[Rfam]
RNA sequence: GCAGAUCCAAGGCCGCAAGGCUCGCCACGAACUGAAGGGUUUUCCCUUCUUUCCUCCCGAGCGGGCUAAGGUCUGAGUCUUCAAGGCUCCUCCAAUCGACUCUAGCGGGGUCCGAUCUGUAAUGGUCGAGCGACAAACAAGGAAUUGAUCCUCCCCAGCGUUGUUCCCGGAGAUCCUUUUGUUCAGUGUCUAGACUUCGUGUCUGGUGCUGCACAGGAGAGGAGGGUGCUGUUGGAGGCCUUGAGAUGUGUUGCGGAGCUCGGGCGGUCCAUCAUACCCGCGCCUCGGUGCCCCACCAUCGCCCUAUCGCACUUUCCAUCCUUCCCAGGUGGGCAGAGUUGUCGGCAAACUCUGCAGCUCCCAAACCCUGACAACCCAGGUGGGGGCAUAUACCGGUCAUAGCCAAUCCCCAAUUGGACCAUUUGCAGCUAGGUGAUUGUCGUGGCAACCCGGGCAGGCCACGACAAGGAUAUCACUGUGCAUUUUGUAGUUGGCCCGGGUUUUGUCUCAUGACUGGGCGAACGGUGUCAGACCUCCUUCGAGAGAUCCUUGAUGGGUUCCGGAGUCGCCGUCCGGUGUCGGGUUGUCAGGCGGGAAUCUAGUGUAUGAGGGGUGAGGGGCACCAGGGCGGGCAUUUGUGUUCUGCCCUUGAGUCCAAUUUGCGGCUCACGUAGUCACUUCCCUCGGGAAGGCGUGAAACUCGAUUCAGACUACUCUGGGUCUGC
Number, nucleotide and partner (000 for none) at each position: 001g725002c724003a723004g722005a000006u000007c719008c718009a717010a000011g000012g666013c665014c664015g663016c662017a661018a660019g000020g062021c061022u060023c059024g058025c000026c000027a000028c000029g000030a000031a000032c000033u000034g049035a048036a047037g046038g045039g044040u000041u000042u000043u000044c039045c038046c037047u036048u035049c034050u000051u000052u000053c000054c000055u000056c000057c000058c024059g023060a022061g021062c020063g000064g000065g000066c000067u000068a000069a000070g000071g000072u000073c709074u708075g707076a706077g705078u000079c000080u000081u000082c000083a000084a000085g000086g000087c000088u000089c000090c258091u257092c256093c255094a000095a000096u000097c000098g112099a111100c110101u109102c108103u000104a000105g000106c000107g000108g102109g101110g100111u099112c098113c128114g127115a126116u125117c124118u000119g000120u000121a000122a000123u000124g117125g116126u115127c114128g113129a000130g254131c253132g252133a251134c250135a249136a000137a000138c000139a000140a000141g000142g000143a000144a000145u000146u000147g000148a000149u000150c000151c000152u238153c000154c000155c000156c000157a000158g000159c000160g000161u000162u000163g000164u000165u000166c000167c000168c000169g000170g000171a000172g000173a000174u000175c000176c000177u000178u000179u000180u000181g000182u000183u000184c000185a000186g000187u000188g000189u000190c000191u000192a000193g000194a000195c000196u000197u000198c000199g000200u000201g000202u000203c000204u000205g000206g000207u000208g000209c000210u000211g000212c000213a000214c000215a000216g000217g000218a000219g000220a000221g000222g000223a000224g000225g000226g000227u000228g000229c000230u000231g000232u000233u000234g000235g000236a000237g000238g152239c000240c000241u000242u000243g000244a000245g000246a000247u000248g000249u135250g134251u133252u132253g131254c130255g093256g092257a091258g090259c000260u000261c000262g000263g000264g000265c000266g000267g000268u000269c000270c000271a000272u000273c000274a000275u000276a000277c000278c000279c000280g000281c000282g000283c000284c000285u000286c000287g000288g000289u000290g000291c000292c000293c000294c000295a000296c000297c000298a000299u000300c000301g000302c000303c000304c000305u000306a000307u000308c000309g000310c000311a000312c000313u000314u000315u000316c000317c000318a000319u000320c000321c000322u000323u000324c000325c000326c000327a000328g000329g000330u000331g000332g000333g000334c000335a000336g000337a000338g000339u000340u000341g000342u000343c000344g000345g000346c000347a000348a000349a000350c000351u000352c000353u000354g000355c000356a000357g000358c000359u000360c000361c000362c000363a000364a000365a000366c000367c000368c000369u000370g000371a000372c000373a000374a000375c000376c000377c000378a000379g000380g000381u000382g000383g000384g000385g000386g000387c000388a000389u000390a000391u000392a000393c000394c000395g000396g000397u000398c000399a000400u000401a000402g000403c000404c000405a000406a000407u000408c000409c000410c000411c000412a000413a000414u000415u000416g000417g000418a000419c000420c000421a000422u000423u000424u000425g000426c000427a000428g000429c000430u000431a000432g000433g000434u000435g000436a000437u000438u000439g000440u000441c000442g000443u000444g000445g000446c000447a000448a000449c000450c000451c000452g000453g000454g000455c000456a000457g000458g000459c000460c000461a000462c000463g000464a000465c000466a000467a000468g000469g000470a000471u000472a000473u000474c000475a000476c000477u000478g000479u000480g000481c000482a000483u000484u000485u000486u000487g000488u000489a000490g000491u000492u000493g000494g000495c000496c000497c000498g000499g000500g000501u000502u000503u000504u000505g000506u000507c000508u000509c000510a000511u000512g000513a000514c000515u000516g000517g000518g000519c000520g000521a000522a000523c000524g000525g000526u000527g000528u000529c000530a000531g000532a000533c000534c000535u000536c000537c000538u000539u000540c000541g000542a000543g000544a000545g000546a000547u000548c000549c000550u000551u000552g000553a000554u000555g000556g000557g000558u000559u000560c000561c000562g000563g000564a000565g000566u000567c000568g000569c000570c000571g000572u000573c000574c000575g000576g000577u000578g000579u000580c000581g000582g000583g000584u000585u000586g000587u000588c000589a000590g000591g000592c000593g000594g000595g000596a000597a000598u000599c000600u000601a000602g000603u000604g000605u000606a000607u000608g000609a000610g000611g000612g000613g000614u000615g000616a000617g000618g000619g000620g000621c000622a000623c000624c000625a000626g000627g000628g000629c000630g000631g000632g000633c000634a000635u000636u000637u000638g000639u000640g000641u000642u000643c000644u000645g000646c000647c000648c000649u000650u000651g000652a000653g000654u000655c000656c000657a000658a000659u000660u018661u017662g016663c015664g014665g013666c012667u697668c696669a695670c694671g693672u692673a000674g000675u000676c000677a000678c000679u000680u000681c000682c000683c000684u000685c000686g000687g000688g000689a000690a000691g000692g672693c671694g670695u669696g668697a667698a000699a000700c000701u000702c000703g000704a000705u077706u076707c075708a074709g073710a000711c000712u000713a000714c000715u000716c000717u009718g008719g007720g000721u000722c004723u003724g002725c001

A member of the RNA family "Nuclear RNase P" from Russula ochroleuca, 725 nucleotides long. Its family is annotated with ribonuclease P activity, ribonuclease P complex and tRNA processing in the Gene Ontology. On this family, see Frank and Pace, Annu Rev Biochem 1998: "Ribonuclease P: unity and diversity in a tRNA processing ribozyme". The source organism's lineage runs through Eukaryota, Opisthokonta, Dikarya, Russulales and Russula. Rfam's curators write: Ribonuclease P (RNase P) is a ubiquitous endoribonuclease, found in archaea, bacteria and eukarya as well as chloroplasts and mitochondria. The base pairs follow the family's consensus structure, which is taken from published work. It is annotated as a ribozyme. A search with the family's covariance model found it, with a score of 47 bits.